[Rfam]
Rfam assigns this 102-nucleotide RNA from Bacillus sp. DNRA2 to the family "Purine riboswitch aptamer". The family has 133 seed sequences and 4,097 matches in Rfam 15.1. The family's consensus secondary structure is taken from published work.
RNA sequence: AUUCUAAAAUAAUAAUAACCUUGUAUAAGUUCAAGAAUAUGGCUUGAACGUUUCUACCUGGCUGCCGUAAAUAGCCUGUCUACAAGGGACAAUUGAAGUAUA
Numbered sequence: 001a002u003u004c005u006a007a008a009a010u011a012a013u014a015a016u017a018a019c020c021u022u023g024u025a026u027a028a029g030u031u032c033a034a035g036a037a038u039a040u041g042g043c044u045u046g047a048a049c050g051u052u053u054c055u056a057c058c059u060g061g062c063u064g065c066c067g068u069a070a071a072u073a074g075c076c077u078g079u080c081u082a083c084a085a086g087g088g089a090c091a092a093u094u095g096a097a098g099u100a101u102a
Stems, first nucleotide, its partner, number of pairs: 019087007029049007058078001060076005